[Rfam]
RNA sequence: GUCUUGUCAGUGAUGUUUUCAAACACAAAUGUCUGAACAAAUGAUUGUAUAUGAUUCAUUCAAUUUUACUGAGACAAGAC
Number, nucleotide and partner (000 for none) at each position: 001g000002u079003c078004u077005u076006g075007u074008c073009a000010g000011u000012g000013a000014u000015g000016u000017u000018u000019u000020c000021a000022a000023a000024c000025a000026c000027a000028a000029a000030u000031g000032u000033c000034u000035g000036a000037a000038c000039a000040a000041a000042u000043g000044a000045u000046u000047g000048u000049a000050u000051a000052u000053g000054a000055u000056u000057c000058a000059u000060u000061c000062a000063a000064u000065u000066u000067u000068a000069c000070u000071g000072a000073g008074a007075c006076a005077a004078g003079a002080c000
RNA: Small nucleolar RNA SNORD72
Organism: Nothobranchius furzeri